[Rfam]
RNA: ZMP/ZTP riboswitch aptamer (pfl RNA motif)
Organism: Amycolatopsis acidicola
RNA sequence: GGCAUGGGCCGUGACUGGCGUUCGGGUGGGGCACCACCGGGGAGCGGUCCUGCGACGAGCCGCACGCCUGGGCGAUCCCG
Numbered sequence: 001g002g003c004a005u006g007g008g009c010c011g012u013g014a015c016u017g018g019c020g021u022u023c024g025g026g027u028g029g030g031g032c033a034c035c036a037c038c039g040g041g042g043a044g045c046g047g048u049c050c051u052g053c054g055a056c057g058a059g060c061c062g063c064a065c066g067c068c069u070g071g072g073c074g075a076u077c078c079c080g
Base pairs, nucleotide, nucleotide: 006050007049008048009047010046011045012044015041016040017068018067019066020065021064026037027036028035029034059073060072061071
Dot-bracket structure: .....(((((((..(([[[[[....((((....))))..))..)))))))........(((..]]]]]..))).......